Rfam assigns this 134-nucleotide sequence from Anaerostipes caccae to the family "Ribosomal protein L10 leader". The organism belongs to Anaerostipes caccae, within Bacteria. From the family's description: This family is a putative r-protein leader autoregulatory structure found in B. subtilis and other low-GC Gram-positive bacteria. The family's consensus secondary structure was predicted with CMfinder.
[Rfam]
RNA sequence: UUACUACAAGUAUCACUGCCGAAGACAGCAGGCGCCGUAUGGCGUAACGUAGAACGGCCUGCCGAGGAUGAUGAUUAGUAUUGAGCUAAUUGUGCCCUUUGUCUUUGCGGACAAAGGGCUUUUCUUAUUCUUAU
Numbered sequence: 001u002u003a004c005u006a007c008a009a010g011u012a013u014c015a016c017u018g019c020c021g022a023a024g025a026c027a028g029c030a031g032g033c034g035c036c037g038u039a040u041g042g043c044g045u046a047a048c049g050u051a052g053a054a055c056g057g058c059c060u061g062c063c064g065a066g067g068a069u070g071a072u073g074a075u076u077a078g079u080a081u082u083g084a085g086c087u088a089a090u091u092g093u094g095c096c097c098u099u100u101g102u103c104u105u106u107g108c109g110g111a112c113a114a115a116g117g118g119c120u121u122u123u124c125u126u127a128u129u130c131u132u133a134u
Stems, first nucleotide, its partner, number of pairs: 028062006034043003094119010